Notes: Group II catalytic intron D1-D4-6: a 222-nucleotide RNA from Candidatus Acidiferrum panamense. NCBI's taxonomy places the organism under Bacteria, Acidobacteriota, Terriglobia, Candidatus Acidiferrales, Candidatus Acidiferrum. The base pairs follow the family's consensus structure.

RNA sequence: CAAGUCCACCACGAUGAAGGAGUAGCGAACCGCAUCGGCCCCGAGCCGUGCGCAGGCACCCGCGAGGGUGUCGGCGAAGCGUCGGUAGGGGAACGUGCAGGCCAGCCAUUGAGCCGCGAUAGAAAACUGAUUCCGGGUGCCGACGCUGUCUGUGUAGCGGAAGGCAAUAUACCCAAGAGCGCCAACGCAAGCGUUUGGGUAACCCGGCGUGGUCGGAGAACC
Numbered sequence: 001c002a003a004g005u006c007c008a009c010c011a012c013g014a015u016g017a018a019g020g021a022g023u024a025g026c027g028a029a030c031c032g033c034a035u036c037g038g039c040c041c042c043g044a045g046c047c048g049u050g051c052g053c054a055g056g057c058a059c060c061c062g063c064g065a066g067g068g069u070g071u072c073g074g075c076g077a078a079g080c081g082u083c084g085g086u087a088g089g090g091g092a093a094c095g096u097g098c099a100g101g102c103c104a105g106c107c108a109u110u111g112a113g114c115c116g117c118g119a120u121a122g123a124a125a126a127c128u129g130a131u132u133c134c135g136g137g138u139g140c141c142g143a144c145g146c147u148g149u150c151u152g153u154g155u156a157g158c159g160g161a162a163g164g165c166a167a168u169a170u171a172c173c174c175a176a177g178a179g180c181g182c183c184a185a186c187g188c189a190a191g192c193g194u195u196u197g198g199g200u201a202a203c204c205c206g207g208c209g210u211g212g213u214c215g216g217a218g219a220a221c222c
Base pairs, nucleotide, nucleotide: 012037013036014035015034016033019031020030023190025188026187039091040090041089042088045086046085047084048083049081050080051076052075053074055072056071057070058069059068060067061066110216111214113213114212115211116210117209118208133207134206135205136204137203138202139165140164141163144159145158146157147156170201171200172199173198174197175196176195177194179192180191